Notes:
The family of this 388-nucleotide sequence from bacterium NHP-B is "Bacterial RNase P class A".
[Rfam]
RNA sequence: UCAGAAGGCUGGAGGAUUACGCGAUGCGCUUUGAUGUCGUGAGGAAAGUCCGGGCUUUAUGGGAAAAAAGGUGCUGGAUAACGUCCAGCCAGGGUGACCUGAGGGAAAGUGCCACAGAAAGCAAACCGCCCUUUCAAAGGGUAAGGGUGAAAGGGUGCGGUAAGAGCGCACCGCGCACCUCGCGAGAGGUGUGGCAGGGUAAACCCCACCUAAAGCAAGGCUAUGUAGGCAUCUUCGUCAUGGGCGCUUGCGUUCAUGACCAGUGCUUUUCCACACUGCGCAAGAUGCGGGUCAGCUGCACAAGGCGUUUGGUAACAGACGUCUCAGAUAAAUGAUCCUCGCUCUUUCAUAAAGAGUACAGAACCCGGCUUAUAGGCCUUCUGACAAC
Numbered sequence: 001u002c003a004g005a006a007g008g009c010u011g012g013a014g015g016a017u018u019a020c021g022c023g024a025u026g027c028g029c030u031u032u033g034a035u036g037u038c039g040u041g042a043g044g045a046a047a048g049u050c051c052g053g054g055c056u057u058u059a060u061g062g063g064a065a066a067a068a069a070g071g072u073g074c075u076g077g078a079u080a081a082c083g084u085c086c087a088g089c090c091a092g093g094g095u096g097a098c099c100u101g102a103g104g105g106a107a108a109g110u111g112c113c114a115c116a117g118a119a120a121g122c123a124a125a126c127c128g129c130c131c132u133u134u135c136a137a138a139g140g141g142u143a144a145g146g147g148u149g150a151a152a153g154g155g156u157g158c159g160g161u162a163a164g165a166g167c168g169c170a171c172c173g174c175g176c177a178c179c180u181c182g183c184g185a186g187a188g189g190u191g192u193g194g195c196a197g198g199g200u201a202a203a204c205c206c207c208a209c210c211u212a213a214a215g216c217a218a219g220g221c222u223a224u225g226u227a228g229g230c231a232u233c234u235u236c237g238u239c240a241u242g243g244g245c246g247c248u249u250g251c252g253u254u255c256a257u258g259a260c261c262a263g264u265g266c267u268u269u270u271c272c273a274c275a276c277u278g279c280g281c282a283a284g285a286u287g288c289g290g291g292u293c294a295g296c297u298g299c300a301c302a303a304g305g306c307g308u309u310u311g312g313u314a315a316c317a318g319a320c321g322u323c324u325c326a327g328a329u330a331a332a333u334g335a336u337c338c339u340c341g342c343u344c345u346u347u348c349a350u351a352a353a354g355a356g357u358a359c360a361g362a363a364c365c366c367g368g369c370u371u372a373u374a375g376g377c378c379u380u381c382u383g384a385c386a387a388c
Base pairs, nucleotide, nucleotide: 001384002383003382004381005380006379007378008377009376010375011373012340013339014338015337016336017335018334020041021040022039023038024037025036026035046371047370048369050368051367052366053365054364055215056214057213058212069211070210071209072208073207074088075087076086077085078084089103090101091100092099093098104206105205109204110203111200112199113198126146127145128142129141130140131139132138133137154172155171156170157169158168159167173195174193175192176191177190178189179188180187181186219297220296221295222294229288230287231286232285233284234283265279266278269275304323305322306321307320308319309318310317311316